Shown here is a 62-nucleotide RNA sequence from Carlito syrichta, a member of the family "U7 small nuclear RNA". Rfam's curators write: Animal histone pre-mRNAs are spliced by a different mechanism than nuclear pre-mRNAs and self-splicing introns. The source organism's lineage runs through Eukaryota, Metazoa, Gnathostomata, Haplorrhini and Carlito.
[Rfam]
RNA sequence: GAAUGUUACAGCUCUUGUAGAAUUUGUCUAGCAGGUUUUCCGGAUUUUACCAGAAAGCCUGC
Numbered sequence: 001g002a003a004u005g006u007u008a009c010a011g012c013u014c015u016u017g018u019a020g021a022a023u024u025u026g027u028c029u030a031g032c033a034g035g036u037u038u039u040c041c042g043g044a045u046u047u048u049a050c051c052a053g054a055a056a057g058c059c060u061g062c
Base pairs, nucleotide, nucleotide: 034059035058036057037056038055039054040053042051043050